[Rfam]
RNA sequence: UUUUGUAGAUAAUAAUUUAUAUCAGAGGCUGUUUCUGAGUAUGAGCCUCAAGCUUUCCCAGUGCUGCAAAAUAUCUGAUUAUGCCGUUUGAAAAU
Numbered sequence: 001u002u003u004u005g006u007a008g009a010u011a012a013u014a015a016u017u018u019a020u021a022u023c024a025g026a027g028g029c030u031g032u033u034u035c036u037g038a039g040u041a042u043g044a045g046c047c048u049c050a051a052g053c054u055u056u057c058c059c060a061g062u063g064c065u066g067c068a069a070a071a072u073a074u075c076u077g078a079u080u081a082u083g084c085c086g087u088u089u090g091a092a093a094a095u
Stems, first nucleotide, its partner, number of pairs: 005095002043055004066084003069080002